Record summary: Small Cajal body specific RNA 8: a 130-nucleotide RNA from Carya illinoinensis. For this family Rfam cites "Cajal body-specific small nuclear RNAs: a novel class of 2'-O-methylation and pseudouridylation guide RNAs" (Darzacq et al., EMBO J, 2002). The family's RNA type in Rfam is small Cajal body RNA. Its family is annotated with RNA processing, Cajal body and nucleolus in the Gene Ontology. scaRNAs are a specific class of small nuclear RNAs which localise to the Cajal bodies and guide the modification of RNA polymerase II transcribed spliceosomal RNAs U1, U2, U4, U5 and U12. U92 belong to the H/ACA box class of guide RNAs as it has the predicted hairpin-hinge-hairpin-tail structure, conserved H/ACA-box motifs and is found associated with GAR1. It scores 53 bits against the family's covariance model.
[Rfam]
RNA sequence: GUGGAGCAUUAUGGAUGGGUCCUUCUAAAUUUGGCUGUAUCCAUAGUUAGUGCUCCAAAAUUGAUGAAUUGGCUUUCGAUGACUACACAGUAAGAGAGCUACUGUGUGGACAGAUACGGGUCAAACAUUU
Numbered sequence: 001g002u003g004g005a006g007c008a009u010u011a012u013g014g015a016u017g018g019g020u021c022c023u024u025c026u027a028a029a030u031u032u033g034g035c036u037g038u039a040u041c042c043a044u045a046g047u048u049a050g051u052g053c054u055c056c057a058a059a060a061u062u063g064a065u066g067a068a069u070u071g072g073c074u075u076u077c078g079a080u081g082a083c084u085a086c087a088c089a090g091u092a093a094g095a096g097a098g099c100u101a102c103u104g105u106g107u108g109g110a111c112a113g114a115u116a117c118g119g120g121u122c123a124a125a126c127a128u129u130u
Base pairs, nucleotide, nucleotide: 002057003056004055005054006053007052015044016043017042018041022037025034069124070123071122072121073120074119075118083109084108085107087105088104089103090102